[Rfam]
RNA sequence: UCAUCAGGUAGAGUUAAUUCUUACCUGCAGCCAAUAUGGCUACAGAGAUGUGAUGACCCGGGGUAUGAUUUACAUGAAUUACACUCCACAGGCCUCCAGGGAAUUGCAACGCUCUGGCUGGCCUAUGUCUGAU
Dot-bracket structure: ........................(((.(((((...))))).)))........................(....(.....)......)...((..(((((............)))))...))...........
Numbered sequence: 001u002c003a004u005c006a007g008g009u010a011g012a013g014u015u016a017a018u019u020c021u022u023a024c025c026u027g028c029a030g031c032c033a034a035u036a037u038g039g040c041u042a043c044a045g046a047g048a049u050g051u052g053a054u055g056a057c058c059c060g061g062g063g064u065a066u067g068a069u070u071u072a073c074a075u076g077a078a079u080u081a082c083a084c085u086c087c088a089c090a091g092g093c094c095u096c097c098a099g100g101g102a103a104u105u106g107c108a109a110c111g112c113u114c115u116g117g118c119u120g121g122c123c124u125a126u127g128u129c130u131g132a133u
Stems, first nucleotide, its partner, number of pairs: 025045003029041005070088001075081001092122002096117005